[Rfam]
RNA sequence: GAUUAAUGAUGAAAAUAGCCAAAUCUGAGCAUCAGAAGACCUUCCAGUUUCAAUAGUUUUGAGA
Numbered sequence: 001g002a003u004u005a006a007u008g009a010u011g012a013a014a015a016u017a018g019c020c021a022a023a024u025c026u027g028a029g030c031a032u033c034a035g036a037a038g039a040c041c042u043u044c045c046a047g048u049u050u051c052a053a054u055a056g057u058u059u060u061g062a063g064a
Stems, first nucleotide, its partner, number of pairs: 029060001031058001033056001037050004
A member of the RNA family "Small nucleolar RNA U2-19" from Neogale vison, 64 nucleotides long.
It scores 53 bits against the family's covariance model.
NCBI's taxonomy places the organism under Eukaryota, Metazoa, Vertebrata, Theria, Neogale.
The base pairs follow the family's consensus structure, which is taken from published work.